[Rfam]
RNA sequence: AUUAUUUGCUAGGGGUGCCGUAAGGCUGAGAAGGAGGAUUCCUAACCCUAUGAACCUGAUAUGGCUAACACCAUCGUAGGGAAGCAAGGGUUUGUAUAU
Number, nucleotide and partner (000 for none) at each position: 001a000002u000003u000004a000005u000006u087007u086008g085009c084010u083011a049012g048013g047014g046015g000016u000017g026018c025019c024020g000021u000022a000023a000024g019025g018026c017027u000028g000029a000030g000031a000032a000033g042034g041035a040036g000037g000038a000039u000040u035041c034042c033043u000044a000045a000046c014047c013048c012049u011050a000051u000052g000053a000054a000055c080056c079057u078058g077059a000060u000061a074062u073063g072064g071065c000066u000067a000068a000069c000070a000071c064072c063073a062074u061075c000076g000077u058078a057079g056080g055081g000082a000083a010084g009085c008086a007087a006088g000089g000090g000091u000092u000093u000094g000095u000096a000097u000098a000099u000
This 99-nucleotide RNA from Clostridium pasteurianum belongs to the Rfam family "TPP riboswitch aptamer (THI element)". It scores 79 bits against the family's covariance model. Lineage of the source: Bacteria > Bacillati > Clostridiaceae > Clostridium > Clostridium pasteurianum.